The family of this 112-nucleotide RNA sequence from Caenorhabditis nigoni is "SL2 RNA".
RNA sequence: GGUUUUAACCCAGUUACUCAAGGUACGCUGGAGUUCCGACCAUUCGAAAGGAUGUGUCGAACACAAAUCUAAUUUUUGGAUCCGCUUCGCUGGGGUUAUCCGGCGAGGCAAU
Numbered sequence: 001g002g003u004u005u006u007a008a009c010c011c012a013g014u015u016a017c018u019c020a021a022g023g024u025a026c027g028c029u030g031g032a033g034u035u036c037c038g039a040c041c042a043u044u045c046g047a048a049a050g051g052a053u054g055u056g057u058c059g060a061a062c063a064c065a066a067a068u069c070u071a072a073u074u075u076u077u078g079g080a081u082c083c084g085c086u087u088c089g090c091u092g093g094g095g096u097u098a099u100c101c102g103g104c105g106a107g108g109c110a111a112u
Stems, first nucleotide, its partner, number of pairs: 007035002009031002013028002015025003037059004041054005086110001088108001091105002094101002

Rfam links the family to the GO term mRNA trans splicing, via spliceosome. Rfam's curators write: This family represents SL2 RNA. SL2 RNA is involved in trans splicing in lower eukaryotes. Trans-splicing is a form of RNA processing. The acquisition of a spliced leader from a SL RNA is a intra-molecular reaction which precisely joins exons derived from separately transcribed RNAs. Approximately 25% of C. elegans genes are organised into polycistronic transcription units and the presence of SL2 on an mRNA is an indication the the gene is in an operon. The source organism's lineage runs through Eukaryota, Opisthokonta, Eumetazoa, Nematoda and Caenorhabditis. Rfam classes the family as a non-coding RNA gene.